[Rfam]
RNA sequence: UUUGCAAGUUUGAGGUCACAGCAGAAGGUCUCAUAGUUCAGCCUGUCAGAUUCAAAUGAAAUCUGUGAAUUCUGCU
Dot-bracket structure: .............[[[...(((((((((.........)).]]]...((((((.......))))))....)))))))
About this RNA: A member of the RNA family "Mammalian CPEB3 ribozyme" from Crocodylus porosus, 76 nucleotides long. The family's consensus secondary structure is taken from published work. NCBI's taxonomy places the organism under Eukaryota, Eumetazoa, Craniata, Vertebrata, Crocodylus.